[Rfam]
RNA sequence: GGGGUCGUUAAGGAUUCGACUGGUAUAGUUCGAGCCUGAAUUGCGUUCCGUAGCAACGCUACGUAAAAAACGAUUCAGUUUUUAACUGCAAAUAAUAAUAAUUCUUACGCUGUAGCUGCUUAAAUAAAGUUAGCUCUGCGUGAUCCGCUCAGCUUGGCCUAGAAGCUGGAUACGGGUUUUAUAUAUUAUAGGAUACGCUAGUCACUCCGACCUGAAGUAACUAGAAGAGAUCAAUCAGGAUAGUCAGCCAAUGAAAACCUUGAGAUGCGGUGUUUUUGGUUGGCGAAUUUCUAAAUAGUAUCGCUAUGAGCGUAGAGACUCGGGUGGCGAUAUGCUAGGACGCGGGUUCGACUCCCGCCGACUCCAUAA
Numbered sequence: 001g002g003g004g005u006c007g008u009u010a011a012g013g014a015u016u017c018g019a020c021u022g023g024u025a026u027a028g029u030u031c032g033a034g035c036c037u038g039a040a041u042u043g044c045g046u047u048c049c050g051u052a053g054c055a056a057c058g059c060u061a062c063g064u065a066a067a068a069a070a071c072g073a074u075u076c077a078g079u080u081u082u083u084a085a086c087u088g089c090a091a092a093u094a095a096u097a098a099u100a101a102u103u104c105u106u107a108c109g110c111u112g113u114a115g116c117u118g119c120u121u122a123a124a125u126a127a128a129g130u131u132a133g134c135u136c137u138g139c140g141u142g143a144u145c146c147g148c149u150c151a152g153c154u155u156g157g158c159c160u161a162g163a164a165g166c167u168g169g170a171u172a173c174g175g176g177u178u179u180u181a182u183a184u185a186u187u188a189u190a191g192g193a194u195a196c197g198c199u200a201g202u203c204a205c206u207c208c209g210a211c212c213u214g215a216a217g218u219a220a221c222u223a224g225a226a227g228a229g230a231u232c233a234a235u236c237a238g239g240a241u242a243g244u245c246a247g248c249c250a251a252u253g254a255a256a257a258c259c260u261u262g263a264g265a266u267g268c269g270g271u272g273u274u275u276u277u278g279g280u281u282g283g284c285g286a287a288u289u290u291c292u293a294a295a296u297a298g299u300a301u302c303g304c305u306a307u308g309a310g311c312g313u314a315g316a317g318a319c320u321c322g323g324g325u326g327g328c329g330a331u332a333u334g335c336u337a338g339g340a341c342g343c344g345g346g347u348u349c350g351a352c353u354c355c356c357g358c359c360g361a362c363u364c365c366a367u368a369a
Base pairs, nucleotide, nucleotide: 001365002364003363004362005361006360007359020338021337022336023335024334025333026332027331029329034325035324036323037322038321039320041318042317044312045311046310047309048308049063050062051061052060053059055074057072058071115135117133142178143177144176145175146174147173149169150168151167152166153165154164155163158192159191160190161189198224199223200222201221202220204218205217206216209241211239212238213237214236243284244283245282246281247280248279249278250277251276257271258270259269262304264302265301266298342358343357344356345355346354
RNA: transfer-messenger RNA
Organism: Philodulcilactobacillus myokonensis